[Rfam]
RNA sequence: UAGAAUAAAUCGUUGAAUCCGUAAUGGAGCGGGGGAACCAUUGUUGUAACGUGUGUUACUUGGGGUGAAUCCGACGCAGGAGGGGCUACUCUCAUGCCCUAACCCGACAGCUAACCUCGUAAGCGUAGUGGGAGGGAUGG
Numbered sequence: 001u002a003g004a005a006u007a008a009a010u011c012g013u014u015g016a017a018u019c020c021g022u023a024a025u026g027g028a029g030c031g032g033g034g035g036a037a038c039c040a041u042u043g044u045u046g047u048a049a050c051g052u053g054u055g056u057u058a059c060u061u062g063g064g065g066u067g068a069a070u071c072c073g074a075c076g077c078a079g080g081a082g083g084g085g086c087u088a089c090u091c092u093c094a095u096g097c098c099c100u101a102a103c104c105c106g107a108c109a110g111c112u113a114a115c116c117u118c119g120u121a122a123g124c125g126u127a128g129u130g131g132g133a134g135g136g137a138u139g140g
Stems, first nucleotide, its partner, number of pairs: 011125004018028003029120006039062002063105003071080002083099004
c-di-AMP riboswitch aptamer (ydaO/yuaA leader): a 140-nucleotide RNA sequence from Anoxybacteroides amylolyticum. It scores 91 bits against the family's covariance model.